[Rfam]
Rfam assigns this 157-nucleotide RNA sequence from Xylophilus rhododendri to the family "FMN riboswitch aptamer (RFN element)". NCBI's taxonomy places the organism under Bacteria, Pseudomonadati, Pseudomonadota, Betaproteobacteria, Xylophilus.

Nucleotides: 157
Stems, first nucleotide, its partner, number of pairs: 003155008017029003031137002033126002035066004061124002069102002106122005128140003
Number, partner (000 for none) and nucleotide at each position: 001000g002000u003155a004154c005153g006152u007151u008150u009149u010148c011000a012000g013000g014000g015000c016000g017029g018028g019027g020000u021000g022000a023000a024000a025000c026000u027019c028018c029017c030000c031137a032136c033126c034125g035066g036065c037064g038063g039000u040000g041000a042000u043000g044000g045000c046000g047000c048000a049000u050000c051000c052000a053000g054000c055000g056000c057000a058000u059000g060000a061124g062123c063038c064037c065036g066035c067000g068000a069102g070101c071000g072000u073000c074000c075000g076000c077000a078000g079000a080000c081000g082000g083000c084000c085000c086000c087000c088000g089000u090000c091000c092000g093000c094000g095000g096000a097000g098000u099000c100000a101070g102069c103000a104000g105000a106122u107121u108120c109119g110118g111000u112000g113000a114000g115000a116000u117000c118110c119109c120108g121107a122106g123062g124061c125034c126033g127000a128140c129139g130138g131000u132000c133000a134000c135000a136032g137031u138130c139129c140128g141000g142000a143000u144000g145000a146000a147000a148010g149009a150008a151007a152006a153005c154004g155003u156000c157000g